[Rfam]
Nucleotides: 045
Base pairs, nucleotide, nucleotide: 006021007020008019009018010017011016
Number, partner (000 for none) and nucleotide at each position: 001000c002000c003000a004000a005000a006021g007020g008019c009018u010017c011016u012000u013000u014000u015000c016011a017010g018009a019008g020007c021006c022000a023000c024000c025000c026000a027000a028000a029000u030000u031000u032000u033000c034000u035000a036000c037000u038000u039000u040000u041000a042000a043000g044000a045000g
Source information:
Shown here is a 45-nucleotide RNA sequence from Polypterus senegalus, a member of the family "Histone 3' UTR stem-loop". Gene Ontology term of the family: mRNA 3'-end processing by stem-loop binding and cleavage. The family's consensus secondary structure is taken from published work. The match comes from Rfam's covariance-model search (37 bits). The organism belongs to Polypterus, within Eukaryota.